[Rfam]
RNA sequence: UCAGGGUGAGGUAGUAGGUUGUAUAGUUUGGUGGGUGGGAUUGCCCACUCAGGUGAUAACUAUACAGUCUAUUGCCUUCCCUGA
Numbered sequence: 001u002c003a004g005g006g007u008g009a010g011g012u013a014g015u016a017g018g019u020u021g022u023a024u025a026g027u028u029u030g031g032u033g034g035g036u037g038g039g040a041u042u043g044c045c046c047a048c049u050c051a052g053g054u055g056a057u058a059a060c061u062a063u064a065c066a067g068u069c070u071a072u073u074g075c076c077u078u079c080c081c082u083g084a
Stems, first nucleotide, its partner, number of pairs: 001084006008078020033045002048055001
Overview: let-7 microRNA precursor family: an 84-nucleotide sequence from Tetraodon nigroviridis. This family represents the microRNAs (miRNA) let-7 and mir-98. let-7 was identified from a study of developmental timing in C. elegans, and was later shown to be part of a much larger class of non-coding RNAs termed miRNAs. Rfam links the family to the GO terms RISC complex and miRNA-mediated post-transcriptional gene silencing. Clan: let-7 microRNA precursor clan. A reference for the family is Liu et al. (2018), "Cryo-EM Structure of Human Dicer and Its Complexes with a Pre-miRNA Substrate", Cell.